The record is an 86-nucleotide RNA sequence from Nicotiana attenuata, which matches "MIR6152 microRNA precursor family" in Rfam. The match comes from Rfam's covariance-model search (58 bits). Rfam 15.1 lists 5,807 matches to the family in 3 species.
[Rfam]
RNA sequence: UAGACAGAUUAUUGCAUUCGACUGUAUUCACGAUCUAUUCAGUUGUUUUUAAACGAAAAGUGAAUUAAUUAACAUAAUAGACUCCU
Numbered sequence: 001u002a003g004a005c006a007g008a009u010u011a012u013u014g015c016a017u018u019c020g021a022c023u024g025u026a027u028u029c030a031c032g033a034u035c036u037a038u039u040c041a042g043u044u045g046u047u048u049u050u051a052a053a054c055g056a057a058a059a060g061u062g063a064a065u066u067a068a069u070u071a072a073c074a075u076a077a078u079a080g081a082c083u084c085c086u
Stems, first nucleotide, its partner, number of pairs: 003084002009080006017072002020070002023067002026065006034055001036053001037048001